[Rfam]
RNA sequence: ACGAUGUUCCGCUGCAAUUUCAAGUUAAUAGUUUGUAUGAGCAUCUG
Numbered sequence: 001a002c003g004a005u006g007u008u009c010c011g012c013u014g015c016a017a018u019u020u021c022a023a024g025u026u027a028a029u030a031g032u033u034u035g036u037a038u039g040a041g042c043a044u045c046u047g
Stems, first nucleotide, its partner, number of pairs: 003045007013037005
Dot-bracket structure: ..(((((((...(((((...............))))).)))))))..
Rfam assigns this 47-nucleotide sequence from Neobacillus massiliamazoniensis to the family "Ribosomal protein L19 leader". It scores 41 bits against the family's covariance model. Rfam links the family to the GO term regulation of gene expression. The organism belongs to Neobacillus, within Bacteria. A reference for the family is Zengel and Lindahl (1994), "Diverse mechanisms for regulating ribosomal protein synthesis in Escherichia coli", Prog Nucleic Acid Res Mol Biol. Rfam describes the family as follows. This family is a putative r-protein leader autoregulatory structure found in B. subtilis and other low-GC Gram-positive bacteria. It is located in the 5' untranslated regions of mRNAs encoding ribosomal protein L19 (rplS).